[Rfam]
Nuclear RNase P: a 352-nucleotide RNA from Apiosordaria backusii. The family has 116 seed sequences and 3,848 matches in Rfam 15.1.
RNA sequence: AUGCUACAAACGGAAAGCUCUAUUCUUCCGGGGAUAUUGCUUUCAACCAAAUACAUGCAUAUGAGAAAUUCGGAGAAACAGCUUCAUUUUUGGCUCGUCUGUCUUCUGCUUGCUGCCAAGUUGGUAGAAGGUGGGUAGCGAGUUCUGCCGGCGACGGCCUGCCUUGAGUUUCGAGGUUGUAAUUGGCAUCAGAAAAGCAGGCACAAGUUGAGAUACACCUGUUGUCCUCUGGAAAGGCCGUUACGAAAGCUUGUGUUGUUGUGACACUUUAGUGCAAUACGCGGCGUGCGGGGGACUGAUCUCUUUCGAAAGGAAGGGAGAGGUUUUUCGUAUCCUUCGAUUCCGAUUACUC
Numbered sequence: 001a002u003g004c005u006a007c008a009a010a011c012g013g014a015a016a017g018c019u020c021u022a023u024u025c026u027u028c029c030g031g032g033g034a035u036a037u038u039g040c041u042u043u044c045a046a047c048c049a050a051a052u053a054c055a056u057g058c059a060u061a062u063g064a065g066a067a068a069u070u071c072g073g074a075g076a077a078a079c080a081g082c083u084u085c086a087u088u089u090u091u092g093g094c095u096c097g098u099c100u101g102u103c104u105u106c107u108g109c110u111u112g113c114u115g116c117c118a119a120g121u122u123g124g125u126a127g128a129a130g131g132u133g134g135g136u137a138g139c140g141a142g143u144u145c146u147g148c149c150g151g152c153g154a155c156g157g158c159c160u161g162c163c164u165u166g167a168g169u170u171u172c173g174a175g176g177u178u179g180u181a182a183u184u185g186g187c188a189u190c191a192g193a194a195a196a197g198c199a200g201g202c203a204c205a206a207g208u209u210g211a212g213a214u215a216c217a218c219c220u221g222u223u224g225u226c227c228u229c230u231g232g233a234a235a236g237g238c239c240g241u242u243a244c245g246a247a248a249g250c251u252u253g254u255g256u257u258g259u260u261g262u263g264a265c266a267c268u269u270u271a272g273u274g275c276a277a278u279a280c281g282c283g284g285c286g287u288g289c290g291g292g293g294g295a296c297u298g299a300u301c302u303c304u305u306u307c308g309a310a311a312g313g314a315a316g317g318g319a320g321a322g323g324u325u326u327u328u329c330g331u332a333u334c335c336u337u338c339g340a341u342u343c344c345g346a347u348u349a350c351u352c
Base pairs, nucleotide, nucleotide: 001060002059003058013044014043015042016041017040018039071345072344073343074342075341080251081250082249083248147158148157149156150155161177162176163175164174165173179244180243181242182241185239186238187237199228200227201226286333287332288331289330290329291328292327293326294325295324296323297322
NCBI's taxonomy places the organism under Eukaryota, Dikarya, Ascomycota, saccharomyceta, Apiosordaria.